[Rfam]
RNA sequence: AAAGGAGCAAUACUAAAAUUCUUGUUAUAUCAAGAGGUUUGGUGUUGCUCCUUCACCA
Number, nucleotide and partner (000 for none) at each position: 001a000002a053003a052004g051005g050006a049007g048008c047009a046010a045011u044012a043013c042014u041015a000016a000017a000018a000019u036020u035021c034022u033023u032024g031025u000026u000027a000028u000029a000030u000031c024032a023033a022034g021035a020036g019037g000038u000039u000040u000041g014042g013043u012044g011045u010046u009047g008048c007049u006050c005051c004052u003053u002054c000055a000056c000057c000058a000
Rfam assigns this 58-nucleotide sequence from Rosa chinensis to the family "Plastid-psbA-3 3UTR RNA". For this family Rfam cites "Retrograde signaling in plants: A critical review focusing on the GUN pathway and beyond" (Richter et al., Plant Commun, 2023). Rfam's curators write: Plastid psbA-3 is a non-coding RNA (ncRNA) present in plastids. Its Rfam clan is "Plastid-psbA 3UTR RNA clan". It is annotated as a cis-regulatory element.